[Rfam]
RNA sequence: UACUACCAAACCCUAUCUCCACCUCCUCGUGGUGAUCGCUGGGAGUUCUUUCUUAAUGAAAAAAUGCAGUCGGAGAAGG
Numbered sequence: 001u002a003c004u005a006c007c008a009a010a011c012c013c014u015a016u017c018u019c020c021a022c023c024u025c026c027u028c029g030u031g032g033u034g035a036u037c038g039c040u041g042g043g044a045g046u047u048c049u050u051u052c053u054u055a056a057u058g059a060a061a062a063a064a065u066g067c068a069g070u071c072g073g074a075g076a077a078g079g
Stems, first nucleotide, its partner, number of pairs: 012079003016075001018073002021033003045065003049061003053058001